[Rfam]
RNA sequence: CGAUAGAUCGACUUCAUAUGAGGGGUGGCGCAUCUGUAAUACCUUCUUUGAACUAUGUUCAAGAAGGGAGGUGACGCCUGUGACAGUUUUCGAAAGCCUAGUGCUUUGCAUAUCUUUUGCAUCACUUGUUGUGGCUAUACUGUCGUUUUCACAUAAAAAAUAACCCCUCAUAUGCCUGGUAGCUAUUAGGGGUUAUUUCCACUCUUAAUGCGCCGCCCCUCUUAUCGGGGUUCGGUCUAUUGUAACCGUAGACGUUGGAGCGUCUGCG
Numbered sequence: 001c002g003a004u005a006g007a008u009c010g011a012c013u014u015c016a017u018a019u020g021a022g023g024g025g026u027g028g029c030g031c032a033u034c035u036g037u038a039a040u041a042c043c044u045u046c047u048u049u050g051a052a053c054u055a056u057g058u059u060c061a062a063g064a065a066g067g068g069a070g071g072u073g074a075c076g077c078c079u080g081u082g083a084c085a086g087u088u089u090u091c092g093a094a095a096g097c098c099u100a101g102u103g104c105u106u107u108g109c110a111u112a113u114c115u116u117u118u119g120c121a122u123c124a125c126u127u128g129u130u131g132u133g134g135c136u137a138u139a140c141u142g143u144c145g146u147u148u149u150c151a152c153a154u155a156a157a158a159a160a161u162a163a164c165c166c167c168u169c170a171u172a173u174g175c176c177u178g179g180u181a182g183c184u185a186u187u188a189g190g191g192g193u194u195a196u197u198u199c200c201a202c203u204c205u206u207a208a209u210g211c212g213c214c215g216c217c218c219c220u221c222u223u224a225u226c227g228g229g230g231u232u233c234g235g236u237c238u239a240u241u242g243u244a245a246c247c248g249u250a251g252a253c254g255u256u257g258g259a260g261c262g263u264c265u266g267c268g
Stems, first nucleotide, its partner, number of pairs: 001242005007236003011232001013215001015174008023165002026162001031073002034071002082144006096109002119135002185205001216230004247268009
RNA: BsrG